terC RNA: a 56-nucleotide RNA from Pseudomonas aeruginosa. Taxonomically the source falls in Pseudomonas aeruginosa (Bacteria, Pseudomonadati, Pseudomonadota, Gammaproteobacteria). Rfam classes the family as a cis-regulatory element.
RNA sequence: GAGUGACUGCGGGCCCCUCUGACGGUAAGCAAUUGCCGCCAUGUCGGAGUCACAUG
Numbered sequence: 001g002a003g004u005g006a007c008u009g010c011g012g013g014c015c016c017c018u019c020u021g022a023c024g025g026u027a028a029g030c031a032a033u034u035g036c037c038g039c040c041a042u043g044u045c046g047g048a049g050u051c052a053c054a055u056g
Base pairs, nucleotide, nucleotide: 006050007049008048010046011045012044023038024037025036026035027034028033